[Rfam]
RNA sequence: UUAAAAGUUGAAUAUUUGCCGUAGACAGUAGGUGCAUUAAGCUUAAUAUCCUACCGAGGUUUUUAAUAAAUUUGUUAAAAACAAGACCUCUUCAUGUCUACACAUCAAGGGGUCUUUUAUAUUAUCGGC
Dot-bracket structure: ...........................(((((.((.....)).......)))))..............................((((((((.((((....)))).))))))))...............
A member of the RNA family "Ribosomal protein L10 leader" from Serpentinicella alkaliphila, 129 nucleotides long. It is annotated as a cis-regulatory leader. It scores 75 bits against the family's covariance model. Lineage of the source: Bacteria > Bacillota > Clostridia > Peptostreptococcales > Serpentinicella.